A member of the RNA family "Archaeal large subunit ribosomal RNA" from Paraphoma chrysanthemicola, 510 nucleotides of a longer RNA.
Lineage of the source: Eukaryota > Opisthokonta > Fungi > Pleosporomycetidae > Paraphoma.
RNA sequence: UAAUUAGUAGCUAGUGUUUAGUUUUAAAGCGCAGCACAAGUCGCGAUUCAAGGCUAUACGCCCGCUUCUAUAAGCCUUUUUUUACUUUUAACCUUAGAUUAAGUAGAGAUACCUACUAAACUUAAGUAUAUUAAUAAGCAGAGGAAAAGAAACUAACAGGGAUUGCCCUAGUAACAGCGAGUAAAGCAGCAACAGCUUAAAUUUAAAAUCUAGCUCUUUUAGAGUCUGAGUUAUAAUUUGCAGAGGGCGCUUUAGUAUUAGUAGCAGUCCAAGUUCCUUAGAACAGGACGUUAUAGAGGGUAAGAAUCCUGUACGUAGUUGCUAGCCUUCGCCGUGUAAAGCCCCUUUAACAAGUUAAGUUGUUUAGAAAUGCAGCUCUAAAUAGGAGGUAAAUUUCUUCUAAAGCUAAAUACUAGCUAGAGACUAAUAGCGCAUAAGUAGAGUAAUUAAAAGAUAAAAAGCACUUUAGAAAAAGAGUUAAAUAGUACGUAAAAUUGUUAAAAGGGAAGC
Numbered sequence: 001u002a003a004u005u006a007g008u009a010g011c012u013a014g015u016g017u018u019u020a021g022u023u024u025u026a027a028a029g030c031g032c033a034g035c036a037c038a039a040g041u042c043g044c045g046a047u048u049c050a051a052g053g054c055u056a057u058a059c060g061c062c063c064g065c066u067u068c069u070a071u072a073a074g075c076c077u078u079u080u081u082u083u084a085c086u087u088u089u090a091a092c093c094u095u096a097g098a099u100u101a102a103g104u105a106g107a108g109a110u111a112c113c114u115a116c117u118a119a120a121c122u123u124a125a126g127u128a129u130a131u132u133a134a135u136a137a138g139c140a141g142a143g144g145a146a147a148a149g150a151a152a153c154u155a156a157c158a159g160g161g162a163u164u165g166c167c168c169u170a171g172u173a174a175c176a177g178c179g180a181g182u183a184a185a186g187c188a189g190c191a192a193c194a195g196c197u198u199a200a201a202u203u204u205a206a207a208a209u210c211u212a213g214c215u216c217u218u219u220u221a222g223a224g225u226c227u228g229a230g231u232u233a234u235a236a237u238u239u240g241c242a243g244a245g246g247g248c249g250c251u252u253u254a255g256u257a258u259u260a261g262u263a264g265c266a267g268u269c270c271a272a273g274u275u276c277c278u279u280a281g282a283a284c285a286g287g288a289c290g291u292u293a294u295a296g297a298g299g300g301u302a303a304g305a306a307u308c309c310u311g312u313a314c315g316u317a318g319u320u321g322c323u324a325g326c327c328u329u330c331g332c333c334g335u336g337u338a339a340a341g342c343c344c345c346u347u348u349a350a351c352a353a354g355u356u357a358a359g360u361u362g363u364u365u366a367g368a369a370a371u372g373c374a375g376c377u378c379u380a381a382a383u384a385g386g387a388g389g390u391a392a393a394u395u396u397c398u399u400c401u402a403a404a405g406c407u408a409a410a411u412a413c414u415a416g417c418u419a420g421a422g423a424c425u426a427a428u429a430g431c432g433c434a435u436a437a438g439u440a441g442a443g444u445a446a447u448u449a450a451a452a453g454a455u456a457a458a459a460a461g462c463a464c465u466u467u468a469g470a471a472a473a474a475g476a477g478u479u480a481a482a483u484a485g486u487a488c489g490u491a492a493a494a495u496u497g498u499u500a501a502a503a504g505g506g507a508a509g510c
Stems, first nucleotide, its partner, number of pairs: 083105005112143001113141002116138002123130002153160002164191003174182002194407004202236002214224003245345003267316002273289001275288004292296001298310003358377006385401005441448002